[Rfam]
RNA sequence: UCGCAAGUUCAAGGCCACAAUAGAAGUGUUUGUGGUGUGGCUCUGUCAGAUUCCAGUGAAUCUGUGACCUCUCCU
Numbered sequence: 001u002c003g004c005a006a007g008u009u010c011a012a013g014g015c016c017a018c019a020a021u022a023g024a025a026g027u028g029u030u031u032g033u034g035g036u037g038u039g040g041c042u043c044u045g046u047c048a049g050a051u052u053c054c055a056g057u058g059a060a061u062c063u064g065u066g067a068c069c070u071c072u073c074c075u
Base pairs, nucleotide, nucleotide: 013042014041015040016039019075022072023071024070026038027037028036047064048063049062050061051060052059053058
Dot-bracket structure: ............((((..[..[[[.(((.......)))))))....(((((((....))))))).....]]]..]
The record is a 75-nucleotide RNA sequence from Alligator sinensis, which matches "Mammalian CPEB3 ribozyme" in Rfam. NCBI's taxonomy places the organism under Eukaryota, Craniata, Sarcopterygii, Sauria, Alligator. The base pairs follow the family's consensus structure, which is taken from published work. The literature on the family includes a 2006 paper in Science by Salehi-Ashtiani et al., "A genomewide search for ribozymes reveals an HDV-like sequence in the human CPEB3 gene".